[Rfam]
RNA sequence: CAGCGAGGACGACCUCCCCCCGUUACGGGCCAUUCUGCCGGGACGACCCGG
Numbered sequence: 001c002a003g004c005g006a007g008g009a010c011g012a013c014c015u016c017c018c019c020c021c022g023u024u025a026c027g028g029g030c031c032a033u034u035c036u037g038c039c040g041g042g043a044c045g046a047c048c049c050g051g
Stems, first nucleotide, its partner, number of pairs: 003018001005016004038051005
About this RNA: The record is a 51-nucleotide sequence from Marinibacterium profundimaris, which matches "Guanidine-II riboswitch aptamer (mini-ykkC)" in Rfam. A reference for the family is Huang et al. (2017), "The Structure of the Guanidine-II Riboswitch", Cell Chem Biol. NCBI's taxonomy places the organism under Bacteria, Pseudomonadati, Pseudomonadota, Paracoccaceae, Marinibacterium. Simpler in structure and has fewer highly conserved nucleotide positions than the ykkC-yxkD leader. Pairs were carried over by alignment from the consensus structure, which is taken from published work.